Shown here is an 87-nucleotide RNA, a member of the family "RAGATH-28 RNA". The family's consensus secondary structure is taken from published work.

RNA sequence: GAGCGGUUGAUUCGUCCUGCAUGUGGAAAUUGGCGGACAUAAGAAAGGCAAAAAGCCGAGAAAUCAUAAAAUCUCGGAUGGCGAAGC
Numbered sequence: 001g002a003g004c005g006g007u008u009g010a011u012u013c014g015u016c017c018u019g020c021a022u023g024u025g026g027a028a029a030u031u032g033g034c035g036g037a038c039a040u041a042a043g044a045a046a047g048g049c050a051a052a053a054a055g056c057c058g059a060g061a062a063a064u065c066a067u068a069a070a071a072u073c074u075c076g077g078a079u080g081g082c083g084a085a086g087c
Stems, first nucleotide, its partner, number of pairs: 001022001003020004056077006

It is one of the family's seed sequences.